RNA sequence: UGGGGUGUAGCCAAGUGGUAAGGCAACGGACUUUGACUCCGUGAUGCGUAGGUUCGAAUCCUACCACCCCAG
Numbered sequence: 001u002g003g004g005g006u007g008u009a010g011c012c013a014a015g016u017g018g019u020a021a022g023g024c025a026a027c028g029g030a031c032u033u034u035g036a037c038u039c040c041g042u043g044a045u046g047c048g049u050a051g052g053u054u055c056g057a058a059u060c061c062u063a064c065c066a067c068c069c070c071a072g
Stems, first nucleotide, its partner, number of pairs: 001071007010024003026042005048064005
This 72-nucleotide RNA sequence from Calditerricola satsumensis belongs to the Rfam family "tRNA". Taxonomically the source falls in Calditerricola (Bacteria, Bacillota, Caryophanales, Bacillaceae).